[Rfam]
RNA sequence: UGUUUGCUGUGAUGACAUCUACAAGGACGGUAUCUGAGUAAGGUGGCUCUUCAAAAUGUGCCCCUUCUGUGAUUGGAUCCAAUCUGAAUGAGAUUCUGAGCAAACA
Numbered sequence: 001u002g003u004u005u006g007c008u009g010u011g012a013u014g015a016c017a018u019c020u021a022c023a024a025g026g027a028c029g030g031u032a033u034c035u036g037a038g039u040a041a042g043g044u045g046g047c048u049c050u051u052c053a054a055a056a057u058g059u060g061c062c063c064c065u066u067c068u069g070u071g072a073u074u075g076g077a078u079c080c081a082a083u084c085u086g087a088a089u090g091a092g093a094u095u096c097u098g099a100g101c102a103a104a105c106a
Stems, first nucleotide, its partner, number of pairs: 001106007038068001040066004